[Rfam]
The family of this 161-nucleotide RNA sequence from Zea mays is "U1 spliceosomal RNA". The family has 100 seed sequences and 40,184 matches in Rfam 15.1. The source organism's lineage runs through Eukaryota, Spermatophyta, Mesangiospermae, Liliopsida and Zea. Pairs were carried over by alignment from the consensus structure, which is taken from published work.
RNA sequence: AUACUUACCUGGAUGGGGUCUAUGGCUCAUCAAGAAGAGUCAUGGCCUAGACUAGUGGCCUCCAUUGCACUUGGGAGGAGCAUUAGUUUACCAUCUCCUCAAGUAGGAGAGUGGACAUCAUAAUUUGUGCUAGAGGGGAUACGCGUCCGCGCGGUCCCUAC
Numbered sequence: 001a002u003a004c005u006u007a008c009c010u011g012g013a014u015g016g017g018g019u020c021u022a023u024g025g026c027u028c029a030u031c032a033a034g035a036a037g038a039g040u041c042a043u044g045g046c047c048u049a050g051a052c053u054a055g056u057g058g059c060c061u062c063c064a065u066u067g068c069a070c071u072u073g074g075g076a077g078g079a080g081c082a083u084u085a086g087u088u089u090a091c092c093a094u095c096u097c098c099u100c101a102a103g104u105a106g107g108a109g110a111g112u113g114g115a116c117a118u119c120a121u122a123a124u125u126u127g128u129g130c131u132a133g134a135g136g137g138g139a140u141a142c143g144c145g146u147c148c149g150c151g152c153g154g155u156c157c158c159u160a161c
Stems, first nucleotide, its partner, number of pairs: 012119004016048005023042005049089003053086001055083003060078002062075002091114003094110003098106002135159004142153004